[Rfam]
RNA sequence: GUUGCAUAGCAUGCGUAUUAGAUAAGCAUUGAAAAAAAGGAUUUUCCCAUUUUCAACAUGGGCUUUUUUGUCAUGCUUAUUUUGCGGAUGCUAUACAAAAAACUAACGACGUAUAGAUAUAGUAUAGACAUAGUGCAAGCUAUGCCUUAGUUUUGUUGUACUGCUCUGUGCAUUAUAAAUGCAGGUCAAUGCUCAUGUUGAGGAUUGACCUGCAUUUUUUUG
Numbered sequence: 001g002u003u004g005c006a007u008a009g010c011a012u013g014c015g016u017a018u019u020a021g022a023u024a025a026g027c028a029u030u031g032a033a034a035a036a037a038a039g040g041a042u043u044u045u046c047c048c049a050u051u052u053u054c055a056a057c058a059u060g061g062g063c064u065u066u067u068u069u070g071u072c073a074u075g076c077u078u079a080u081u082u083u084g085c086g087g088a089u090g091c092u093a094u095a096c097a098a099a100a101a102a103c104u105a106a107c108g109a110c111g112u113a114u115a116g117a118u119a120u121a122g123u124a125u126a127g128a129c130a131u132a133g134u135g136c137a138a139g140c141u142a143u144g145c146c147u148u149a150g151u152u153u154u155g156u157u158g159u160a161c162u163g164c165u166c167u168g169u170g171c172a173u174u175a176u177a178a179a180u181g182c183a184g185g186u187c188a189a190u191g192c193u194c195a196u197g198u199u200g201a202g203g204a205u206u207g208a209c210c211u212g213c214a215u216u217u218u219u220u221u222g
Stems, first nucleotide, its partner, number of pairs: 006094007014086003020082010031071001033069006040063001047061004095156006103150004111145005118137001121134001123132001179215006186208005192202004
Rfam assigns this 222-nucleotide RNA from Intestinimonas butyriciproducens to the family "Enterococcus sRNA 1300". The organism belongs to Intestinimonas, within Bacteria. Expressed in mid and late exponential phases of growth. Expression remained uniform under daptomycin exposure. A reference for the family is Sinel et al. (2017), "Small RNAs in vancomycin-resistant Enterococcus faecium involved in daptomycin response and resistance", Sci Rep.